[Rfam]
RNA: Group II catalytic intron D1-D4-3
Organism: Acidisarcina polymorpha
RNA sequence: CUCGUCGUGAGGCGGGGUCUGAAGGAAGCCUGGAGCAAAGGCGUGUGCGAGAACAGGAAUCGGAUACGAGGCCUGUGCUCGUGGGCGAGUUGGCAAAGAGCAGCAAAGCCCAUAUCCAUCAAGACGAGCAGAGGUAAAUCCGACGGUAGGUCGUCAUCCCCGCGUCCAAAGUUCUGCC
Numbered sequence: 001c002u003c004g005u006c007g008u009g010a011g012g013c014g015g016g017g018u019c020u021g022a023a024g025g026a027a028g029c030c031u032g033g034a035g036c037a038a039a040g041g042c043g044u045g046u047g048c049g050a051g052a053a054c055a056g057g058a059a060u061c062g063g064a065u066a067c068g069a070g071g072c073c074u075g076u077g078c079u080c081g082u083g084g085g086c087g088a089g090u091u092g093g094c095a096a097a098g099a100g101c102a103g104c105a106a107a108g109c110c111c112a113u114a115u116c117c118a119u120c121a122a123g124a125c126g127a128g129c130a131g132a133g134g135u136a137a138a139u140c141c142g143a144c145g146g147u148a149g150g151u152c153g154u155c156a157u158c159c160c161c162g163c164g165u166c167c168a169a170a171g172u173u174c175u176g177c178c
Base pairs, nucleotide, nucleotide: 001016002015003014004013005012006011031176032175035172036171040166041165042164043163044162045161046148047147048146060143061142062141063140064139065138071135072134073133076130077129078128079127080126081125083111084110085109086108089104090103091102092101